[Rfam]
RNA: Glutamine-II riboswitch aptamer
RNA sequence: UUUCGUUCACCCUCAUUUGAGGGCGCAGUUCGAGUCAUCCCAUGGAACGGGGGAUGGC
Dot-bracket structure: ...[[[[[.(((((....)))))..........((((((((...]]]]].))))))))